[Rfam]
RNA sequence: CGGAGAAACAUCAUUGAGUGCAGCGUUGAUGAAGUUUCGGGUAGAUGCCAAAUGAUUUUAUCAACGCUGCACUCAAUCAUGUUUUUU
Numbered sequence: 001c002g003g004a005g006a007a008a009c010a011u012c013a014u015u016g017a018g019u020g021c022a023g024c025g026u027u028g029a030u031g032a033a034g035u036u037u038c039g040g041g042u043a044g045a046u047g048c049c050a051a052a053u054g055a056u057u058u059u060a061u062c063a064a065c066g067c068u069g070c071a072c073u074c075a076a077u078c079a080u081g082u083u084u085u086u087u
Stems, first nucleotide, its partner, number of pairs: 006084006013077016030060007
The family of this 87-nucleotide RNA sequence from Lupinus angustifolius is "MIR397 microRNA precursor family".
The family has 7 seed sequences and 496 matches in Rfam 15.1.
Lineage of the source: Eukaryota > Viridiplantae > Streptophyta > fabids > Lupinus.